Rfam assigns this 94-nucleotide RNA from Scaptodrosophila lebanonensis to the family "mir-286 microRNA precursor family". Pairs were carried over by alignment from the consensus structure, which was predicted with RNAalifold. A search with the family's covariance model found it, with a score of 101 bits. The family has 15 seed sequences and 37 matches in Rfam 15.1. Rfam links the family to the GO terms miRNA-mediated post-transcriptional gene silencing and RISC complex.

RNA sequence: UUAAAAUUAAAUGGCGAUUGUCGGUAUAGUCGCUUUUUUAAUAAAACACUCAAGCGAAGUGACUAGACCGAACACUCGUGCUAUAAUUUUAAAA
Dot-bracket structure: ..........((((((..((((((..(((((.((.......................)).)))))..))).)))....))))))..........
Numbered sequence: 001u002u003a004a005a006a007u008u009a010a011a012u013g014g015c016g017a018u019u020g021u022c023g024g025u026a027u028a029g030u031c032g033c034u035u036u037u038u039u040a041a042u043a044a045a046a047c048a049c050u051c052a053a054g055c056g057a058a059g060u061g062a063c064u065a066g067a068c069c070g071a072a073c074a075c076u077c078g079u080g081c082u083a084u085a086a087u088u089u090u091a092a093a094a
Stems, first nucleotide, its partner, number of pairs: 011084006019074003022070003027065005033059002